[Rfam]
RNA sequence: UGGCCUAUGGUGUAACUGGCAACACGCCUGGUUUUGGUCCAGGAGAGUCUAGGUUCGAGCCCUAGUAGGCCAA
Numbered sequence: 001u002g003g004c005c006u007a008u009g010g011u012g013u014a015a016c017u018g019g020c021a022a023c024a025c026g027c028c029u030g031g032u033u034u035u036g037g038u039c040c041a042g043g044a045g046a047g048u049c050u051a052g053g054u055u056c057g058a059g060c061c062c063u064a065g066u067a068g069g070c071c072a073a
Stems, first nucleotide, its partner, number of pairs: 001072007010025004027043005049065005